Eukaryotic large subunit ribosomal RNA: a 359-nucleotide part of an RNA from Drosophila yakuba. Lineage of the source: Eukaryota > Opisthokonta > Arthropoda > Pterygota > Sophophora. The family's consensus secondary structure is taken from published work.

RNA sequence: CUCGAUGAACCUGAAUAUCCGUUAUGCAAAAUUCAUCAUUAAAAUUGUAAUAUUUAAAUAAUAUUAUAAGGAUAGUGUGCAUUUUUUCCAUAUAAGGACAUUGUAAUCUAUUAGCAUAUCCCAAAUUUAUCAUAAAAUAUAAUUUAUAGUUUAUUCAAAUUAAAGUGCUUGCAUUUUAAAACAGAAUAAAUGUUAUUAAUUUGAUAAAGUGCUGAUAGAUUUAUAUGAUUACAGUGCGUUAAUUUUUCGGAAUUAUAUAAUGGCAUAAUUAUCAUUGAUUUUUAUGUUUAUUAUAUGCACUUGUAUUAUUAACAAUGCGAAAGAUUCAGGAUACCUUCGGGACCCGUCUUGAAACACGG
Numbered sequence: 001c002u003c004g005a006u007g008a009a010c011c012u013g014a015a016u017a018u019c020c021g022u023u024a025u026g027c028a029a030a031a032u033u034c035a036u037c038a039u040u041a042a043a044a045u046u047g048u049a050a051u052a053u054u055u056a057a058a059u060a061a062u063a064u065u066a067u068a069a070g071g072a073u074a075g076u077g078u079g080c081a082u083u084u085u086u087u088c089c090a091u092a093u094a095a096g097g098a099c100a101u102u103g104u105a106a107u108c109u110a111u112u113a114g115c116a117u118a119u120c121c122c123a124a125a126u127u128u129a130u131c132a133u134a135a136a137a138u139a140u141a142a143u144u145u146a147u148a149g150u151u152u153a154u155u156c157a158a159a160u161u162a163a164a165g166u167g168c169u170u171g172c173a174u175u176u177u178a179a180a181a182c183a184g185a186a187u188a189a190a191u192g193u194u195a196u197u198a199a200u201u202u203g204a205u206a207a208a209g210u211g212c213u214g215a216u217a218g219a220u221u222u223a224u225a226u227g228a229u230u231a232c233a234g235u236g237c238g239u240u241a242a243u244u245u246u247u248c249g250g251a252a253u254u255a256u257a258u259a260a261u262g263g264c265a266u267a268a269u270u271a272u273c274a275u276u277g278a279u280u281u282u283u284a285u286g287u288u289u290a291u292u293a294u295a296u297g298c299a300c301u302u303g304u305a306u307u308a309u310u311a312a313c314a315a316u317g318c319g320a321a322a323g324a325u326u327c328a329g330g331a332u333a334c335c336u337u338c339g340g341g342a343c344c345c346g347u348c349u350u351g352a353a354a355c356a357c358g359g
Stems, first nucleotide, its partner, number of pairs: 001341005007335001010330003020071001022069005076321001078319005344359004